[Rfam]
RNA: freshwater-1 RNA
RNA sequence: UGUGAUGGACCCUGCUCUGUGUGGCCACACAACAGGUGGACAGUAAACUAUGUCCAAUCAAA
Numbered sequence: 001u002g003u004g005a006u007g008g009a010c011c012c013u014g015c016u017c018u019g020u021g022u023g024g025c026c027a028c029a030c031a032a033c034a035g036g037u038g039g040a041c042a043g044u045a046a047a048c049u050a051u052g053u054c055c056a057a058u059c060a061a062a
Base pairs, nucleotide, nucleotide: 011036012035013034014033018031019030021028022027037056038055039054040053041052042051
Dot-bracket structure: ..........((((...((.((....)).)).))))((((((........))))))......